Source information
The family of this 176-nucleotide RNA sequence from Paenibacillus hemerocallicola is "c-di-AMP riboswitch aptamer (ydaO/yuaA leader)". Lineage of the source: Bacteria > Bacillati > Bacilli > Paenibacillaceae > Paenibacillus. It scores 89 bits against the family's covariance model. Rfam describes the family as follows. This family represents a conserved RNA structure found upstream of the ydaO and yuaA genes in Bacillus subtilis and related genes in other bacteria.

RNA sequence: AGUCUGCAAUCGCUGAAUUUUGCCGCAAGGCAGAAGCGGGGGAACCAAACGGUGCGGCGGCGUCUCAUGAGCCGCGGCAUCAGGGGUGAAUCGCUAAGCCCGUUACGGGUAAAGCGUAGGGCGACUCCAACGUCCGAAUCCGUCAGCUAACCUCGUAAGCGUUUCGGAGAGGCAAC
Numbered sequence: 001a002g003u004c005u006g007c008a009a010u011c012g013c014u015g016a017a018u019u020u021u022g023c024c025g026c027a028a029g030g031c032a033g034a035a036g037c038g039g040g041g042g043a044a045c046c047a048a049a050c051g052g053u054g055c056g057g058c059g060g061c062g063u064c065u066c067a068u069g070a071g072c073c074g075c076g077g078c079a080u081c082a083g084g085g086g087u088g089a090a091u092c093g094c095u096a097a098g099c100c101c102g103u104u105a106c107g108g109g110u111a112a113a114g115c116g117u118a119g120g121g122c123g124a125c126u127c128c129a130a131c132g133u134c135c136g137a138a139u140c141c142g143u144c145a146g147c148u149a150a151c152c153u154c155g156u157a158a159g160c161g162u163u164u165c166g167g168a169g170a171g172g173c174a175a176c
Base pairs, nucleotide, nucleotide: 011161012160013159014158018035019034020033021032022031023030024029036156037155038154039153040152041151046083084141085140086139092116093115094114095113119135120134121133122132
Dot-bracket structure: ..........((((...(((((((....)))))))((((((....(....................................)(((.....((((.................))))..((((.........))))...))).........)))))).))))...............